[Rfam]
RNA sequence: GCCGAGCUCAGUAAUGUGGGCUUGUAACCCAAGUGGGGGCAUUAAUUUGGUAGAAUAUUGGGCAGUCUCAUCGGACAAGGAUUGGUGGGCUGAUAUCUAACCUGCUCUAUCCAAUUAUAGAGUUGGGUCAUGUGGCCCAAUCGAAGGCAUGGGCUACUAGAUUCCUAAAGGGGGGCGGACCAGUGUGAGGCUGGUUUCACAGAGCAAAGAACAGUCCCCGCUCUGUGCAGUGGAAGGAUAACGGGUCGGUGUCUUCCAAGCCCAACAAAUACCUGAUAGUUUGCUCCAAUUCAAUCACCAAUUUU
Dot-bracket structure: ((((((((((......)))))))....(((....))))))...((.(((((.(...(((((((((..(.(((((..(.((.((((.(((.((....((.(((((.((..((((..((((((((.(((((..((((((((..(....)..))))))))..)))))(....)((((((.......(.(....(((......)))....).)....))))))))))))))...)))).))....))))).))))))).)))).)).......)..))))).).))))).))).)...).))))).)).
RNA: Plant signal recognition particle RNA